[Rfam]
RNA sequence: CCGUCCGGCUCGUGGGACAGAGUGACGGCCCUGGUCGCGGCCCGGCUACCCUGGCCGGGUGCGCCUUCCGCCGAAGACGCAAAGCCGACAGCCGUCGCAUCCCAGGGAGUACAUCCAUG
Numbered sequence: 001c002c003g004u005c006c007g008g009c010u011c012g013u014g015g016g017a018c019a020g021a022g023u024g025a026c027g028g029c030c031c032u033g034g035u036c037g038c039g040g041c042c043c044g045g046c047u048a049c050c051c052u053g054g055c056c057g058g059g060u061g062c063g064c065c066u067u068c069c070g071c072c073g074a075a076g077a078c079g080c081a082a083a084g085c086c087g088a089c090a091g092c093c094g095u096c097g098c099a100u101c102c103c104a105g106g107g108a109g110u111a112c113a114u115c116c117a118u119g
Base pairs, nucleotide, nucleotide: 060081061080062079063078065076066075067074068073084098085097087096088095089094